[Rfam]
RNA sequence: UUUAGAACUUGAGAUAUGGGUUGAACACUGAACAGUGUCUGGGCUGCAGGACAAAUUCAGACUUCUUUCUUGAUGUUAAGAUUUGGACUUCCAAGCGGCAAAAUUGAGUCUUAGACUCUCAUGAAUGUUUUAGGCUCAUGUCUUAGCUUUCUAGC
Numbered sequence: 001u002u003u004a005g006a007a008c009u010u011g012a013g014a015u016a017u018g019g020g021u022u023g024a025a026c027a028c029u030g031a032a033c034a035g036u037g038u039c040u041g042g043g044c045u046g047c048a049g050g051a052c053a054a055a056u057u058c059a060g061a062c063u064u065c066u067u068u069c070u071u072g073a074u075g076u077u078a079a080g081a082u083u084u085g086g087a088c089u090u091c092c093a094a095g096c097g098g099c100a101a102a103a104u105u106g107a108g109u110c111u112u113a114g115a116c117u118c119u120c121a122u123g124a125a126u127g128u129u130u131u132a133g134g135c136u137c138a139u140g141u142c143u144u145a146g147c148u149u150u151c152u153a154g155c
Stems, first nucleotide, its partner, number of pairs: 002154006008146002011144010021133005027128002035122003042118002045115001048112005054105004060099001062098002072088001074086001
About this RNA:
A member of the RNA family "MIR2912 microRNA precursor family" from Populus tomentosa, 155 nucleotides long.